A member of the RNA family "tRNA" from Acholeplasma laidlawii, 70 nucleotides long. Its Rfam clan is "tRNA clan". Rfam describes the family as follows. Transfer RNA (tRNA) molecules are approximately 80 nucleotides in length. Their secondary structure includes four short double-helical elements and three loops (D, anti-codon, and T loops). Further hydrogen bonds mediate the characteristic L-shaped molecular structure. tRNAs have two regions of fundamental functional importance: the anti-codon, which is responsible for specific mRNA codon recognition, and the 3' end, to which the tRNAs corresponding amino acid is attached (by aminoacyl-tRNA synthetases). tRNAs cope with the degeneracy of the genetic code in two manners: having more than one tRNA (with a specific anti-codon) for a particular amino acid; and 'wobble' base-pairing, i.e. permitting non-standard base-pairing at the 3rd anti-codon position. It is one of the family's seed sequences. It is annotated as a transfer RNA.
RNA sequence: GUCGGUGUCGUAUAUGGUUAUUACAGGCCUUGCCAAGGCUUAGACGGCAGUUCGAUCCUGCUCACCGGCU
Numbered sequence: 001g002u003c004g005g006u007g008u009c010g011u012a013u014a015u016g017g018u019u020a021u022u023a024c025a026g027g028c029c030u031u032g033c034c035a036a037g038g039c040u041u042a043g044a045c046g047g048c049a050g051u052u053c054g055a056u057c058c059u060g061c062u063c064a065c066c067g068g069c070u
Base pairs, nucleotide, nucleotide: 001069002068003067004066005065006064007063010024011023012022025041026040027039028038029037046062047061048060049059050058